The family of this 48-nucleotide sequence from Lacrimispora xylanisolvens is "uup RNA". It scores 62 bits against the family's covariance model.
RNA sequence: GACGAAUGAACUCUGUACAAAUCAACCCGGUGAAACAUUGUACAGAGU
Numbered sequence: 001g002a003c004g005a006a007u008g009a010a011c012u013c014u015g016u017a018c019a020a021a022u023c024a025a026c027c028c029g030g031u032g033a034a035a036c037a038u039u040g041u042a043c044a045g046a047g048u
Base pairs, nucleotide, nucleotide: 011047012046013045014044015043017041018040019039

The family's consensus secondary structure is taken from published work. The family's RNA type in Rfam is cis-regulatory element.